[Rfam]
RNA: terC RNA
Organism: Alsobacter metallidurans
RNA sequence: AUCGGGGUCCGGGCCCCUCUGGUAGUCUCGCAAGGGACUACGAUGUCGGACUCUUCCA
Numbered sequence: 001a002u003c004g005g006g007g008u009c010c011g012g013g014c015c016c017c018u019c020u021g022g023u024a025g026u027c028u029c030g031c032a033a034g035g036g037a038c039u040a041c042g043a044u045g046u047c048g049g050a051c052u053c054u055u056c057c058a
Base pairs, nucleotide, nucleotide: 006052007051008050009049010048011047012046022041023040024039025038026037027036028035029034